[Rfam]
Rfam assigns this 320-nucleotide sequence from Flavobacterium branchiophilum to the family "Bacterial RNase P class A". Ribonuclease P (RNase P) is a ubiquitous endoribonuclease, found in archaea, bacteria and eukarya as well as chloroplasts and mitochondria. Rfam links the family to the GO terms ribonuclease P activity, dimeric ribonuclease P complex and tRNA processing. It is annotated as a ribozyme. The organism belongs to Flavobacterium, within Bacteria.
RNA sequence: CAAGCAGACCGCCUUAUCGCUGUUUAUCGAUAGAUAAAGAGAGGAAAGUCCGGACACCACAGAGAAGCAUAGCGGGUAACACCCGUCGGGUUGUGCAAACAAUUUAGGACAAGUGCAACAGAAAGCAAGUACAGGUAAUGCUGUAGUGAAACCAGGUAAACUCUAUGCGGUGAAAUUUCAAGUAUAUCGGCAUUUAAGGGUUUCUCGUCCGUUGUCGAAGGGUAGAAAGAUGGAGCAAUUGAGUAAUUGAUUGCCUAGAUAAAUGAUAAGGCAUCAAAGCCAUUUGAUGACAGAAUCCGGCUUAUAGGUCUGCUUUUUUU
Numbered sequence: 001c002a003a004g005c006a007g008a009c010c011g012c013c014u015u016a017u018c019g020c021u022g023u024u025u026a027u028c029g030a031u032a033g034a035u036a037a038a039g040a041g042a043g044g045a046a047a048g049u050c051c052g053g054a055c056a057c058c059a060c061a062g063a064g065a066a067g068c069a070u071a072g073c074g075g076g077u078a079a080c081a082c083c084c085g086u087c088g089g090g091u092u093g094u095g096c097a098a099a100c101a102a103u104u105u106a107g108g109a110c111a112a113g114u115g116c117a118a119c120a121g122a123a124a125g126c127a128a129g130u131a132c133a134g135g136u137a138a139u140g141c142u143g144u145a146g147u148g149a150a151a152c153c154a155g156g157u158a159a160a161c162u163c164u165a166u167g168c169g170g171u172g173a174a175a176u177u178u179c180a181a182g183u184a185u186a187u188c189g190g191c192a193u194u195u196a197a198g199g200g201u202u203u204c205u206c207g208u209c210c211g212u213u214g215u216c217g218a219a220g221g222g223u224a225g226a227a228a229g230a231u232g233g234a235g236c237a238a239u240u241g242a243g244u245a246a247u248u249g250a251u252u253g254c255c256u257a258g259a260u261a262a263a264u265g266a267u268a269a270g271g272c273a274u275c276a277a278a279g280c281c282a283u284u285u286g287a288u289g290a291c292a293g294a295a296u297c298c299g300g301c302u303u304a305u306a307g308g309u310c311u312g313c314u315u316u317u318u319u320u
Stems, first nucleotide, its partner, number of pairs: 002315009011305001012271007020041002023038006046303003050300005055172004062206004067168005072086005087107001088105007108163002113161002115157002130145005176228004187218005198210004235254008